Source information: The family of this 600-nucleotide part of an RNA from Actinopolymorpha singaporensis is "Bacterial large subunit ribosomal RNA".
RNA sequence: UAGUAAGGGCACUCGGUGGAUGCCUUGGCACCAGAAGCCGAUGAAGGACGUAGGAGCCUGCGAUAAGCCCCGGGGAGUUGGCAACCGAGCUGUGAUCCGGGGGUGUCCGAAUGGGGAAACCCGGCUGGAGUCAUGUCCAGUCACCGGCGCCUGAACACAUAGGGCGUUCGGAGGGAACGCGGGGAAGUGAAACAUCUCAGUACCCGCAGGAAGAGAAAACAAUUGUGAUUCCGUGAGUAGCGGCGAGCGAAAGCGGAAGAGGCUAAACCGUGUAGGUGUGAUAGCUGGCAGGUGUUGCCUAUGCGGGGUUGUGGGAUCGUCCGGUCGGAGCUGCUGAUCCGGCGAGGAGUUAUAAACCGCUGCGGAAGUCGAAGGGUCUGGAAAGUCCCGGCAUAGCAGGUGAUACCCCUGUAGACGUAACGUGGUGGCUCCUGGGCGUGUUCCCAAGUAGCACGGGACCCGUGAAAUCCUGUGUGAAUCUGGCGGGACCACCCGCCAAGCCUAAAUACUUUCUGGUGACCGAUAGUGAACCAGUACCGUGAGGGAAAGGUGAAAAGUACCCCGGGAGGGGAGUGAAAUAGUCCCUGAAACCGUGUGCCU
Numbered sequence: 001u002a003g004u005a006a007g008g009g010c011a012c013u014c015g016g017u018g019g020a021u022g023c024c025u026u027g028g029c030a031c032c033a034g035a036a037g038c039c040g041a042u043g044a045a046g047g048a049c050g051u052a053g054g055a056g057c058c059u060g061c062g063a064u065a066a067g068c069c070c071c072g073g074g075g076a077g078u079u080g081g082c083a084a085c086c087g088a089g090c091u092g093u094g095a096u097c098c099g100g101g102g103g104u105g106u107c108c109g110a111a112u113g114g115g116g117a118a119a120c121c122c123g124g125c126u127g128g129a130g131u132c133a134u135g136u137c138c139a140g141u142c143a144c145c146g147g148c149g150c151c152u153g154a155a156c157a158c159a160u161a162g163g164g165c166g167u168u169c170g171g172a173g174g175g176a177a178c179g180c181g182g183g184g185a186a187g188u189g190a191a192a193c194a195u196c197u198c199a200g201u202a203c204c205c206g207c208a209g210g211a212a213g214a215g216a217a218a219a220c221a222a223u224u225g226u227g228a229u230u231c232c233g234u235g236a237g238u239a240g241c242g243g244c245g246a247g248c249g250a251a252a253g254c255g256g257a258a259g260a261g262g263c264u265a266a267a268c269c270g271u272g273u274a275g276g277u278g279u280g281a282u283a284g285c286u287g288g289c290a291g292g293u294g295u296u297g298c299c300u301a302u303g304c305g306g307g308g309u310u311g312u313g314g315g316a317u318c319g320u321c322c323g324g325u326c327g328g329a330g331c332u333g334c335u336g337a338u339c340c341g342g343c344g345a346g347g348a349g350u351u352a353u354a355a356a357c358c359g360c361u362g363c364g365g366a367a368g369u370c371g372a373a374g375g376g377u378c379u380g381g382a383a384a385g386u387c388c389c390g391g392c393a394u395a396g397c398a399g400g401u402g403a404u405a406c407c408c409c410u411g412u413a414g415a416c417g418u419a420a421c422g423u424g425g426u427g428g429c430u431c432c433u434g435g436g437c438g439u440g441u442u443c444c445c446a447a448g449u450a451g452c453a454c455g456g457g458a459c460c461c462g463u464g465a466a467a468u469c470c471u472g473u474g475u476g477a478a479u480c481u482g483g484c485g486g487g488a489c490c491a492c493c494c495g496c497c498a499a500g501c502c503u504a505a506a507u508a509c510u511u512u513c514u515g516g517u518g519a520c521c522g523a524u525a526g527u528g529a530a531c532c533a534g535u536a537c538c539g540u541g542a543g544g545g546a547a548a549g550g551u552g553a554a555a556a557g558u559a560c561c562c563c564g565g566g567a568g569g570g571g572a573g574u575g576a577a578a579u580a581g582u583c584c585c586u587g588a589a590a591c592c593g594u595g596u597g598c599c600u
Stems, first nucleotide, its partner, number of pairs: 007600006014593003022585001023550002027521002029518007036510002038174002046108003049062003068102007077090003113122003123142007144171003147167006178209001179207005189196002219226002229506001230257005240248002260503004268306011313445003318438004355430001357428008368416003374389003378385001392396001398410003451475008482497005537544002560571004